[Rfam]
RNA sequence: GCUUCCGAUCCGAACGGUGACGUUGAUCGCCGCCUUCCCCGCAAAGGGAUAGGAUCGGGAGUUUUC
Numbered sequence: 001g002c003u004u005c006c007g008a009u010c011c012g013a014a015c016g017g018u019g020a021c022g023u024u025g026a027u028c029g030c031c032g033c034c035u036u037c038c039c040c041g042c043a044a045a046g047g048g049a050u051a052g053g054a055u056c057g058g059g060a061g062u063u064u065u066c
Stems, first nucleotide, its partner, number of pairs: 001062011016034004021029002036049004
A member of the RNA family "DUF3800-IX RNA", 66 nucleotides long. The base pairs follow the family's consensus structure, which is taken from published work. Rfam's curators put it in the seed alignment. Actinobacteria, Firmicutes (1 example), Nitrospirae, Proteobacteria, Verrucomicrobia (1 example). The family's RNA type in Rfam is small RNA.